[Rfam]
RNA sequence: UGUGAUCUUCAGGGCAGGGUGUAAUUCCCUACCGGCGGUAAAGCCCGCGAGCCUUUUUAGGCAUGAUCCGGUUAGAUUCCGGGGCCGACAGUAAAGUCUGGAUGAAAGAAGAUAGAA
Numbered sequence: 001u002g003u004g005a006u007c008u009u010c011a012g013g014g015c016a017g018g019g020u021g022u023a024a025u026u027c028c029c030u031a032c033c034g035g036c037g038g039u040a041a042a043g044c045c046c047g048c049g050a051g052c053c054u055u056u057u058u059a060g061g062c063a064u065g066a067u068c069c070g071g072u073u074a075g076a077u078u079c080c081g082g083g084g085c086c087g088a089c090a091g092u093a094a095a096g097u098c099u100g101g102a103u104g105a106a107a108g109a110a111g112a113u114a115g116a117a
Base pairs, nucleotide, nucleotide: 003115005113006112007111008110009109010108017029018028019027031097032096033087034086035048036047037046038045043085044084053061067083068082069081070080071079089100090099091098
RNA: FMN riboswitch aptamer (RFN element)
Organism: Clostridium sp. CT7